Source information: A member of the RNA family "Poribacteria-1 RNA" from Candidatus Poribacteria bacterium WGA-4E, 103 nucleotides long. Rfam's curators put it in the seed alignment.
RNA sequence: AUCACCGGUGGGGAACCCCAUACGGCAACGGCGUAGAAGUAAAUGCUAACCAAUCCGUGGUAUCUACGCGACGGAGCAUCCACGGAUAACUCUAACAAGGAGA
Numbered sequence: 001a002u003c004a005c006c007g008g009u010g011g012g013g014a015a016c017c018c019c020a021u022a023c024g025g026c027a028a029c030g031g032c033g034u035a036g037a038a039g040u041a042a043a044u045g046c047u048a049a050c051c052a053a054u055c056c057g058u059g060g061u062a063u064c065u066a067c068g069c070g071a072c073g074g075a076g077c078a079u080c081c082a083c084g085g086a087u088a089a090c091u092c093u094a095a096c097a098a099g100g101a102g103a
Stems, first nucleotide, its partner, number of pairs: 002028001005025003032068006054086007

Pairs were carried over by alignment from the consensus structure, which is taken from published work.
The source organism's lineage runs through Bacteria, Bacteria candidate phyla and Candidatus Poribacteria.
The family's RNA type in Rfam is small RNA.